[Rfam]
RNA sequence: ACAGUACAAACUGAUCAGGCCGAUGAAUUAUUUUGUUUAUGGAGCCGGGCCUUAAUUGGCAACAGGAUUAUAAAAACACCUGUGGGACAGUU
Numbered sequence: 001a002c003a004g005u006a007c008a009a010a011c012u013g014a015u016c017a018g019g020c021c022g023a024u025g026a027a028u029u030a031u032u033u034u035g036u037u038u039a040u041g042g043a044g045c046c047g048g049g050c051c052u053u054a055a056u057u058g059g060c061a062a063c064a065g066g067a068u069u070a071u072a073a074a075a076a077c078a079c080c081u082g083u084g085g086g087a088c089a090g091u092u
Stems, first nucleotide, its partner, number of pairs: 010091004016086001018046003023040006049060003062083005
The family of this 92-nucleotide RNA sequence from Clostridium senegalense is "NiCo (Nickel/Cobalt) riboswitch aptamer". NCBI's taxonomy places the organism under Bacteria, Clostridia, Eubacteriales, Clostridiaceae, Clostridium. It scores 68 bits against the family's covariance model. The literature on the family includes a 2015 paper in Mol Cell by Furukawa et al., "Bacterial riboswitches cooperatively bind Ni(2+) or Co(2+) ions and control expression of heavy metal transporters".